[Rfam]
Notes
Archaeal signal recognition particle RNA: a 308-nucleotide sequence from a Sulfolobaceae archaeon. A reference for the family is Hainzl et al. (2011), "Structural basis of signal-sequence recognition by the signal recognition particle", Nat Struct Mol Biol. The family is grouped with related families in Rfam's "SRP clan". Rfam classes the family as a non-coding RNA gene. Pairs were carried over by alignment from the consensus structure, which is taken from published work.

RNA sequence: GGGCUAGGUAGGGCGGGGGGUCUCGCCAGCCCCUGUAACCUGCGAGGCGUAAUGCAGGCGCCAGUAACUCCUACCUCAUGGUGAUCCUCUAACAGUAGCCCUAACCCAACGAUGAAACUCGCCCAGUGGGGCCUCGCGUGUGUGGAUUCCCUCUUCGGAGGAAGAGGGGAUACCACACUUACUGGGGGAACCAGCCAGGCCCGGAAGGGAGCAACUGUGCCCAGGCGCGGGCGUUCACUGGUCACCGAGUAGAGAAGGGUUAGGGGGAACUACUGUUAGAGGUAGCUAUGGGGUAGGGGGUCUAGCCC
Numbered sequence: 001g002g003g004c005u006a007g008g009u010a011g012g013g014c015g016g017g018g019g020g021u022c023u024c025g026c027c028a029g030c031c032c033c034u035g036u037a038a039c040c041u042g043c044g045a046g047g048c049g050u051a052a053u054g055c056a057g058g059c060g061c062c063a064g065u066a067a068c069u070c071c072u073a074c075c076u077c078a079u080g081g082u083g084a085u086c087c088u089c090u091a092a093c094a095g096u097a098g099c100c101c102u103a104a105c106c107c108a109a110c111g112a113u114g115a116a117a118c119u120c121g122c123c124c125a126g127u128g129g130g131g132c133c134u135c136g137c138g139u140g141u142g143u144g145g146a147u148u149c150c151c152u153c154u155u156c157g158g159a160g161g162a163a164g165a166g167g168g169g170a171u172a173c174c175a176c177a178c179u180u181a182c183u184g185g186g187g188g189a190a191c192c193a194g195c196c197a198g199g200c201c202c203g204g205a206a207g208g209g210a211g212c213a214a215c216u217g218u219g220c221c222c223a224g225g226c227g228c229g230g231g232c233g234u235u236c237a238c239u240g241g242u243c244a245c246c247g248a249g250u251a252g253a254g255a256a257g258g259g260u261u262a263g264g265g266g267g268a269a270c271u272a273c274u275g276u277u278a279g280a281g282g283u284a285g286c287u288a289u290g291g292g293g294u295a296g297g298g299g300g301u302c303u304a305g306c307c308c
Stems, first nucleotide, its partner, number of pairs: 001308009012062004016034006039058006068299013082284002086282012099265009110254001117250005123241008131232003135229004140178006146171011182224003186221002192217003200209003